[Rfam]
RNA: c-di-AMP riboswitch aptamer (ydaO/yuaA leader)
Nucleotides: 182
Base pairs, nucleotide, nucleotide: 011167012166013165014164018033019032020031021030022029034162035161036160037159038158039157044071072147073146074145080122081121082120125141126140127139128138
Number, partner (000 for none) and nucleotide at each position: 001000g002000u003000g004000a005000g006000g007000u008000c009000g010000c011167c012166g013165c014164u015000c016000a017000a018033u019032c020031a021030c022029c023000u024000a025000c026000c027000a028000a029022g030021g031020u032019g033018a034162a035161c036160c037159g038158g039157g040000g041000a042000a043000c044071c045000a046000c047000u048000g049000a050000u051000g052000c053000c054000g055000a056000c057000c058000a059000c060000g061000a062000g063000u064000c065000g066000c067000a068000u069000c070000c071044g072147g073146g074145g075000u076000g077000a078000a079000u080122c081121c082120c083000a084000c085000c086000g087000g088000a089000c090000c091000c092000u093000g094000a095000g096000g097000c098000c099000g100000a101000g102000a103000g104000g105000u106000u107000u108000u109000c110000g111000g112000g113000g114000u115000u116000c117000a118000a119000c120082g121081g122080g123000u124000a125141g126140g127139g128138c129000c130000a131000u132000c133000u134000u135000c136000c137000g138128g139127c140126c141125c142000g143000a144000a145074u146073c147072c148000g149000a150000c151000a152000g153000c154000u155000a156000a157039c158038c159037c160036g161035g162034u163000c164014g165013g166012c167011g168000g169000a170000c171000a172000g173000g174000g175000a176000a177000g178000a179000a180000a181000c182000a